[Rfam]
About this RNA:
The family of this 92-nucleotide sequence from Microtus ochrogaster is "mir-339 microRNA precursor family". The source organism's lineage runs through Eukaryota, Deuterostomia, Dipnotetrapodomorpha, Boreoeutheria and Microtus. The family's consensus secondary structure was predicted with RNAalifold. The family has 12 seed sequences and 128 matches in Rfam 15.1.

RNA sequence: UGGGGCAGCCACUGUCCCUGUCCUCCGGGAGCUCACUUAUGUCUGCCUGUGAGUGGUUCAACGGCAGAGCUGGUGUCCACCCCUGCACUGCC
Numbered sequence: 001u002g003g004g005g006c007a008g009c010c011a012c013u014g015u016c017c018c019u020g021u022c023c024u025c026c027g028g029g030a031g032c033u034c035a036c037u038u039a040u041g042u043c044u045g046c047c048u049g050u051g052a053g054u055g056g057u058u059c060a061a062c063g064g065c066a067g068a069g070c071u072g073g074u075g076u077c078c079a080c081c082c083c084u085g086c087a088c089u090g091c092c
Base pairs, nucleotide, nucleotide: 005080008077010075011074012073013072016069018067019066020065022063024061027058028057031054032053033052034051035050036049038045039044